[Rfam]
RNA sequence: CCGAUGCAUGCGGGAGAACCGGGCUUGAAAUCCGGUGCCGAAGGAGCAACCGCCCCGGAAACUCUCAGGCUCAGGGACCGCAGGCACGAU
Numbered sequence: 001c002c003g004a005u006g007c008a009u010g011c012g013g014g015a016g017a018a019c020c021g022g023g024c025u026u027g028a029a030a031u032c033c034g035g036u037g038c039c040g041a042a043g044g045a046g047c048a049a050c051c052g053c054c055c056c057g058g059a060a061a062c063u064c065u066c067a068g069g070c071u072c073a074g075g076g077a078c079c080g081c082a083g084g085c086a087c088g089a090u
Stems, first nucleotide, its partner, number of pairs: 006085002009082005019035004037070003040066002044064003050058002
RNA: Glycine riboswitch aptamer
Organism: Pontibaca salina